Background:
A member of the RNA family "small nucleolar RNA snoR143" from Papaver nudicaule, 184 nucleotides long. The source organism's lineage runs through Eukaryota, Viridiplantae, Tracheophyta, Papaveroideae and Papaver. The literature on the family includes a 2009 paper in Nucleic Acids Res by Chen and Wu, "Mining small RNA sequencing data: a new approach to identify small nucleolar RNAs in Arabidopsis".
RNA sequence: UUGCAUGUAUUGGGUUUAUUGAGUGUGAAGUACUUAUCCUUCUUCUUAUAUAUACCAAUGAUGCACACAUUAAAAACCAGUUGAUUUAUCAAUUGGUAGCGGCCAGACAACCGUAGGGAUGUGGUAUCCACAGAUAACAGGUUUAAUUCAGUCCCGAUUUAUCUACUAACUCCAUCUCACAUAA
Numbered sequence: 001u002u003g004c005a006u007g008u009a010u011u012g013g014g015u016u017u018a019u020u021g022a023g024u025g026u027g028a029a030g031u032a033c034u035u036a037u038c039c040u041u042c043u044u045c046u047u048a049u050a051u052a053u054a055c056c057a058a059u060g061a062u063g064c065a066c067a068c069a070u071u072a073a074a075a076a077c078c079a080g081u082u083g084a085u086u087u088a089u090c091a092a093u094u095g096g097u098a099g100c101g102g103c104c105a106g107a108c109a110a111c112c113g114u115a116g117g118g119a120u121g122u123g124g125u126a127u128c129c130a131c132a133g134a135u136a137a138c139a140g141g142u143u144u145a146a147u148u149c150a151g152u153c154c155c156g157a158u159u160u161a162u163c164u165a166c167u168a169a170c171u172c173c174a175u176c177u178c179a180c181a182u183a184a
Stems, first nucleotide, its partner, number of pairs: 002065005011057003015054001017052003020048004027042004116178006124172001126171001136159002138156001140154002
Background: Rfam 15.1 lists 660 matches to the family in 212 species. It scores 50 bits against the family's covariance model. Rfam links the family to the GO terms RNA processing and nucleolus. Pairs were carried over by alignment from the consensus structure, which was predicted with RNAalifold.